Rfam assigns this 146-nucleotide RNA from Streptomyces sp. 3213.3 to the family "Streptomyces-metH RNA". The base pairs follow the family's consensus structure, which is taken from published work.
RNA sequence: CCGGUCCGCCCCAUGGACGUGCCGAGCAUUCUCCCGCCCGACCCCGUUACCCUGGCGGCGUGCAAGCUCCCCGGGGGAGUUCCGUGAGAGGUUCCCAGGGAAGCCGCAAAGCCGACAGCCGUCGCACUCCAGGGAGCCCCUUCAUG
Numbered sequence: 001c002c003g004g005u006c007c008g009c010c011c012c013a014u015g016g017a018c019g020u021g022c023c024g025a026g027c028a029u030u031c032u033c034c035c036g037c038c039c040g041a042c043c044c045c046g047u048u049a050c051c052c053u054g055g056c057g058g059c060g061u062g063c064a065a066g067c068u069c070c071c072c073g074g075g076g077g078a079g080u081u082c083c084g085u086g087a088g089a090g091g092u093u094c095c096c097a098g099g100g101a102a103g104c105c106g107c108a109a110a111g112c113c114g115a116c117a118g119c120c121g122u123c124g125c126a127c128u129c130c131a132g133g134g135a136g137c138c139c140c141u142u143c144a145u146g
Stems, first nucleotide, its partner, number of pairs: 061108003068101004111125002114123003